RNA: Streptomyces sRNA scr5239
Organism: Streptomyces corynorhini
RNA sequence: CCUCCGCCCUCCCCGCACAGGAGGGCGGACCGGGGUUCCGGGCGCUCUCUGCCCUGACUGCGACGGGACCCCUCGCACGGCCGCGCGGGACCGCACACCCGUCGGCCGGAGCAUUCGGGGCUGCGGUGUCCGACGGGCUGAGGGUCCCGUCGCGGCGC
Numbered sequence: 001c002c003u004c005c006g007c008c009c010u011c012c013c014c015g016c017a018c019a020g021g022a023g024g025g026c027g028g029a030c031c032g033g034g035g036u037u038c039c040g041g042g043c044g045c046u047c048u049c050u051g052c053c054c055u056g057a058c059u060g061c062g063a064c065g066g067g068a069c070c071c072c073u074c075g076c077a078c079g080g081c082c083g084c085g086c087g088g089g090a091c092c093g094c095a096c097a098c099c100c101g102u103c104g105g106c107c108g109g110a111g112c113a114u115u116c117g118g119g120g121c122u123g124c125g126g127u128g129u130c131c132g133a134c135g136g137g138c139u140g141a142g143g144g145u146c147c148c149g150u151c152g153c154g155g156c157g158c
Stems, first nucleotide, its partner, number of pairs: 003029004008024005032072005038066003044061002046057002078108006087100003112128004118122001131152007